[Rfam]
RNA sequence: UUAAGACUUGUAGUGAUGUUUAGGGAAAUUAUCACAUGAACAUCACUUUAAGUCUCUGCU
Number, nucleotide and partner (000 for none) at each position: 001u000002u000003a000004a055005g054006a053007c052008u051009u050010g049011u000012a000013g046014u045015g044016a043017u042018g041019u040020u039021u038022a037023g000024g000025g000026a000027a000028a000029u000030u000031a000032u000033c000034a000035c000036a000037u022038g021039a020040a019041c018042a017043u016044c015045a014046c013047u000048u000049u010050a009051a008052g007053u006054c005055u004056c000057u000058g000059c000060u000
mir-499 microRNA precursor family: a 60-nucleotide sequence from Salmo salar. Rfam's curators put it in the seed alignment. The literature on the family includes a 2008 paper in Genome Res by Murchison et al., "Conservation of small RNA pathways in platypus".